RNA sequence: GCCCGGGAGACAUACUUCUUUAUAUGCCCAUAUGACCUGCGAAGCUAUGGAAUGUAAAGAAGUAUGUAUUUCAGGU
Numbered sequence: 001g002c003c004c005g006g007g008a009g010a011c012a013u014a015c016u017u018c019u020u021u022a023u024a025u026g027c028c029c030a031u032a033u034g035a036c037c038u039g040c041g042a043a044g045c046u047a048u049g050g051a052a053u054g055u056a057a058a059g060a061a062g063u064a065u066g067u068a069u070u071u072c073a074g075g076u
Stems, first nucleotide, its partner, number of pairs: 007070002010067016028050005

A member of the RNA family "mir-1 microRNA precursor family" from Phyllostomus discolor, 76 nucleotides long. For this family Rfam cites "An extensive class of small RNAs in Caenorhabditis elegans" (Lee and Ambros, Science, 2001). NCBI's taxonomy places the organism under Eukaryota, Bilateria, Deuterostomia, Dipnotetrapodomorpha, Phyllostomus. The family has 137 seed sequences and 4,474 matches in Rfam 15.1.